[Rfam]
RNA sequence: ACGGACGGCUGGAUGAUCGCGCCCUUCUUCGGAAGGUCGAGGAAAGUCCGGACUCCAUCACAGGCACGGUGCCGGGUAACGCCCGGCGGGGGCAACCCCAGGGACAGCGCCACAGAGAACAGACCGCCGGGCAGCGCUCGGCAAGGGUGAAACGGUGGGGUAAGAGCCCACCGCGCGAGCGGUAACGCAAGCGGCACGGCAAGCCCCACCGGGAGCAAUGCCAAAUAGGGGCCCUGCGCCGGAGCGAUCCGGCAGGGAUGCCUUGACCCCAGGGGCCCGGGUUGGCAGCCAGAGGGUCGUCGGCAACGGCGGCUUGAGACGAAUGAUCAUCCAUCCGCGCAUGUCGCGGGGGACAGAAUCCGGCUUACAGGCCGUCCGUGUCA
Dot-bracket structure: ((((((((((((((((((.((.(((((....))))).))....[[[.[[[[[((((.....[[[..((((((((((.....)))))(((((....)))).)((...(((((............(((((((((...)))))))..)).......((((((.......))))))((((..(((....)))..))).)..)))..)))))))))))))...((((......((((((....................(((.(..]]]).)))...)))))).....)))).......((((((((....))))))))..........)))))))...........................]]]]]]]].).))))))))))....
A member of the RNA family "Bacterial RNase P class A", 383 nucleotides long. It scores 282 bits against the family's covariance model.